RNA sequence: GCCUAGGGUAGAGGAGCUGUAAUUAAAAGUAUUUAUUCGGAGUCGGUAGGCUGAGAUGAAUAAAGAAAGGAAUUAUGGCCGAAGAAAGUAAAUUGACGAAUUUAUUUUCUGGCCUUGCAUAGAAUAUGUGCAAGGUUGUCGCGUAUUUAACGUGGAGAGCUACAAGGUAC
Numbered sequence: 001g002c003c004u005a006g007g008g009u010a011g012a013g014g015a016g017c018u019g020u021a022a023u024u025a026a027a028a029g030u031a032u033u034u035a036u037u038c039g040g041a042g043u044c045g046g047u048a049g050g051c052u053g054a055g056a057u058g059a060a061u062a063a064a065g066a067a068a069g070g071a072a073u074u075a076u077g078g079c080c081g082a083a084g085a086a087a088g089u090a091a092a093u094u095g096a097c098g099a100a101u102u103u104a105u106u107u108u109c110u111g112g113c114c115u116u117g118c119a120u121a122g123a124a125u126a127u128g129u130g131c132a133a134g135g136u137u138g139u140c141g142c143g144u145a146u147u148u149a150a151c152g153u154g155g156a157g158a159g160c161u162a163c164a165a166g167g168u169a170c
Stems, first nucleotide, its partner, number of pairs: 008163004016079009032064008083110012111137011139155005